Rfam assigns this 102-nucleotide RNA from Plasticicumulans acidivorans to the family "Manganese Mn2+ riboswitch aptamer (yybP-ykoY)". This RNA was originally discovered in E. coli during a large scale screen and was named SraF. The family was later found to exist upstream of related families of protein genes in many bacteria, including the the yybP and ykoK genes in B. subtilis. NCBI's taxonomy places the organism under Bacteria, Pseudomonadati, Gammaproteobacteria, Candidatus Competibacteraceae, Plasticicumulans.
RNA sequence: CCGCCUCCCAUUGGGGAGUAGCCGCCCUCGACCAAACAUGAGGGGCCUGCGCCAACAGACUUGAGCGUUCGCUCAUGGUGCAGGCAGUCCAGCUCCGGACCU
Numbered sequence: 001c002c003g004c005c006u007c008c009c010a011u012u013g014g015g016g017a018g019u020a021g022c023c024g025c026c027c028u029c030g031a032c033c034a035a036a037c038a039u040g041a042g043g044g045g046c047c048u049g050c051g052c053c054a055a056c057a058g059a060c061u062u063g064a065g066c067g068u069u070c071g072c073u074c075a076u077g078g079u080g081c082a083g084g085c086a087g088u089c090c091a092g093c094u095c096c097g098g099a100c101c102u
Stems, first nucleotide, its partner, number of pairs: 026043003045085010062075005